[Rfam]
RNA: mir-166 microRNA precursor family
RNA sequence: GUUGAGAGGAACGUUGUCUGAGUCGAUGUCAUGAAGGCCAUGAUUAUACAUAAAUGGCAUUAUCUGAUGACAGCCCGGAUAAUCGAUGCCUGUCUUGAACCUAAAUGAUUCUCGGACCAGGCUCCAUUCCUUCCAAC
Dot-bracket structure: ((((.((((((.(..(((((...(((.....................................................................................)))...)))))..).)))))).))))